[Rfam]
RNA sequence: GAAAGGCCGCAGGUGUGCUGCGGCUGGGCAGCGCUUACUGCCCCAGUUAGA
Number, nucleotide and partner (000 for none) at each position: 001g000002a000003a000004a000005g025006g024007c023008c022009g021010c020011a019012g018013g000014u000015g000016u000017g000018c012019u011020g010021c009022g008023g007024c006025u005026g043027g042028g041029c040030a039031g038032c000033g000034c000035u000036u000037a000038c031039u030040g029041c028042c027043c026044c000045a000046g000047u000048u000049a000050g000051a000
The family of this 51-nucleotide RNA sequence is "S4-Clostridia ribosomal protein leader".
The family's consensus secondary structure is taken from published work.
Rfam's curators put it in the seed alignment.
On this family, see Eckert and Weinberg, BMC Microbiol 2020: "Discovery of 20 novel ribosomal leader candidates in bacteria and archaea".